[Rfam]
RNA sequence: UUUUCCGCGAGGAACGGUCUGAAGGAAGCCGCUAGCAAAACUGCGAGCUGAUGAACAAGAACAUCAUAUGAGGCGUAGGUCAGAGGCGAGUUGGCACAAGACGACGAAGCCAAGUGAUUUAAUGACCACCGUAAAUGAUGCAGUUGCGCAGUGAAAGUCCAUGUC
Numbered sequence: 001u002u003u004u005c006c007g008c009g010a011g012g013a014a015c016g017g018u019c020u021g022a023a024g025g026a027a028g029c030c031g032c033u034a035g036c037a038a039a040a041c042u043g044c045g046a047g048c049u050g051a052u053g054a055a056c057a058a059g060a061a062c063a064u065c066a067u068a069u070g071a072g073g074c075g076u077a078g079g080u081c082a083g084a085g086g087c088g089a090g091u092u093g094g095c096a097c098a099a100g101a102c103g104a105c106g107a108a109g110c111c112a113a114g115u116g117a118u119u120u121a122a123u124g125a126c127c128a129c130c131g132u133a134a135a136u137g138a139u140g141c142a143g144u145u146g147c148g149c150a151g152u153g154a155a156a157g158u159c160c161a162u163g164u165c
Stems, first nucleotide, its partner, number of pairs: 001016001003014004028165001030163002035158002040152006046145005062140006073132003076128001078127005085111003090105004
Rfam assigns this 165-nucleotide RNA sequence from Photobacterium profundum to the family "Group II catalytic intron D1-D4-3".
Rfam links the family to the GO term Group II intron splicing.
The base pairs follow the family's consensus structure.